This 102-nucleotide RNA from Lottiidibacillus patelloidae belongs to the Rfam family "Purine riboswitch aptamer". Taxonomically the source falls in Lottiidibacillus (Bacteria, Bacillati, Bacillota, Bacilli). The match comes from Rfam's covariance-model search (92 bits). Gene Ontology term of the family: purine nucleobase biosynthetic process. Pairs were carried over by alignment from the consensus structure, which is taken from published work.
RNA sequence: AAUUCAAAUUAAAUAUUCCGUCGUAUAAUAUCGGGGAUAGGGCCCGAAAGUUUCUACCGAGUUACCGUAAAUGACUCGACUACGACGAAGUUUUUCAAAUAC
Numbered sequence: 001a002a003u004u005c006a007a008a009u010u011a012a013a014u015a016u017u018c019c020g021u022c023g024u025a026u027a028a029u030a031u032c033g034g035g036g037a038u039a040g041g042g043c044c045c046g047a048a049a050g051u052u053u054c055u056a057c058c059g060a061g062u063u064a065c066c067g068u069a070a071a072u073g074a075c076u077c078g079a080c081u082a083c084g085a086c087g088a089a090g091u092u093u094u095u096c097a098a099a100u101a102c
Stems, first nucleotide, its partner, number of pairs: 019087007029049001031047005058078007